RNA sequence: CAACUCUGGUUACUCUUCAAUCACGCACAAGUUUUUCGCCUUUUACUAAAGACUUCCGUGGAGAGCAACGCUUACGAGUUCAACGUAUUUUUGGACAGGCUUUGGUCCCGGCAGAGCC
Numbered sequence: 001c002a003a004c005u006c007u008g009g010u011u012a013c014u015c016u017u018c019a020a021u022c023a024c025g026c027a028c029a030a031g032u033u034u035u036u037c038g039c040c041u042u043u044u045a046c047u048a049a050a051g052a053c054u055u056c057c058g059u060g061g062a063g064a065g066c067a068a069c070g071c072u073u074a075c076g077a078g079u080u081c082a083a084c085g086u087a088u089u090u091u092u093g094g095a096c097a098g099g100c101u102u103u104g105g106u107c108c109c110g111g112c113a114g115a116g117c118c
Stems, first nucleotide, its partner, number of pairs: 003079004009069003013065007029055008099117006
U5 spliceosomal RNA: a 118-nucleotide RNA sequence from Esox lucius. The match comes from Rfam's covariance-model search (78 bits). On this family, see Zwieb, Nucleic Acids Res 1997: "The uRNA database". Rfam classes the family as a spliceosomal small nuclear RNA. The organism belongs to Esox, within Eukaryota.